[Rfam]
RNA sequence: GGUGGGGGCGGAUCCUGGGCUGUGUCCCGGCGCCUUGUGCUCCUGGGCCUGUGCUGUUGGAUUCACUCUCCAGCCGCGCAGCCCCCU
Numbered sequence: 001g002g003u004g005g006g007g008g009c010g011g012a013u014c015c016u017g018g019g020c021u022g023u024g025u026c027c028c029g030g031c032g033c034c035u036u037g038u039g040c041u042c043c044u045g046g047g048c049c050u051g052u053g054c055u056g057u058u059g060g061a062u063u064c065a066c067u068c069u070c071c072a073g074c075c076g077c078g079c080a081g082c083c084c085c086c087u
Base pairs, nucleotide, nucleotide: 001085002084004082007079009076010075011074014073017071018070019069022066023065024064025061026060027059028056029055030054031053032052033051037049039048040047041046